[Rfam]
RNA sequence: CUUGCCGAGGAGCGCUGCGACCCGAUGAAUUGCGGGCCAGGCUCGGCAACCGAACAACGGCGCUCGCAAACC
Numbered sequence: 001c002u003u004g005c006c007g008a009g010g011a012g013c014g015c016u017g018c019g020a021c022c023c024g025a026u027g028a029a030u031u032g033c034g035g036g037c038c039a040g041g042c043u044c045g046g047c048a049a050c051c052g053a054a055c056a057a058c059g060g061c062g063c064u065c066g067c068a069a070a071c072c
Stems, first nucleotide, its partner, number of pairs: 002049007021036004